[Rfam]
RNA sequence: UGGAGGUCUGAGAAGGUUGAGCAGCUUCUGUUGUGCUGCUACAACUGGUUAUAACCUCCUAAAGAAAAAAAAAUCUCAAACAAGCCACUUGAUUUUCUGCUGUGUUCUGAACACAGCUGCCGUGAGCUGUUU
Numbered sequence: 001u002g003g004a005g006g007u008c009u010g011a012g013a014a015g016g017u018u019g020a021g022c023a024g025c026u027u028c029u030g031u032u033g034u035g036c037u038g039c040u041a042c043a044a045c046u047g048g049u050u051a052u053a054a055c056c057u058c059c060u061a062a063a064g065a066a067a068a069a070a071a072a073a074u075c076u077c078a079a080a081c082a083a084g085c086c087a088c089u090u091g092a093u094u095u096u097c098u099g100c101u102g103u104g105u106u107c108u109g110a111a112c113a114c115a116g117c118u119g120c121c122g123u124g125a126g127c128u129g130u131u132u
Stems, first nucleotide, its partner, number of pairs: 002059005015046004020040006079131003084127002090122002099117005
Rfam assigns this 132-nucleotide sequence from Cynoglossus semilaevis to the family "Small nucleolar RNA SNORA47". By type it is an H/ACA-box small nucleolar RNA. For this family Rfam cites "RNomics: an experimental approach that identifies 201 candidates for novel, small, non-messenger RNAs in mouse" (Huttenhofer et al., EMBO J, 2001). It scores 62 bits against the family's covariance model.